[Rfam]
RNA sequence: GAGGAUAAAUUGCCCCGUGCAAUAGACGCAGCGGACCCGGGGGCGGUACCCGGCGGCUCCACCAUCACCCGUUUCCUUACGGGAACAACCCUGUUGUCGCAGGGGUGAUGACGGGGCCGAACUAGGAUCGACGUGUGUUGAAAAGCGGUGUUUUCUUCCGGGCUGAGUAACCCGUUCAAGGCUCAAAACU
Numbered sequence: 001g002a003g004g005a006u007a008a009a010u011u012g013c014c015c016c017g018u019g020c021a022a023u024a025g026a027c028g029c030a031g032c033g034g035a036c037c038c039g040g041g042g043g044c045g046g047u048a049c050c051c052g053g054c055g056g057c058u059c060c061a062c063c064a065u066c067a068c069c070c071g072u073u074u075c076c077u078u079a080c081g082g083g084a085a086c087a088a089c090c091c092u093g094u095u096g097u098c099g100c101a102g103g104g105g106u107g108a109u110g111a112c113g114g115g116g117c118c119g120a121a122c123u124a125g126g127a128u129c130g131a132c133g134u135g136u137g138u139u140g141a142a143a144a145g146c147g148g149u150g151u152u153u154u155c156u157u158c159c160g161g162g163c164u165g166a167g168u169a170a171c172c173c174g175u176u177c178a179a180g181g182c183u184c185a186a187a188a189c190u
Base pairs, nucleotide, nucleotide: 001158002157003156004155005154015148016147017146018145027137028136029135031134032133033132037053038052039051040050041049054119055118056117057116058115059114060113159174160173161172162171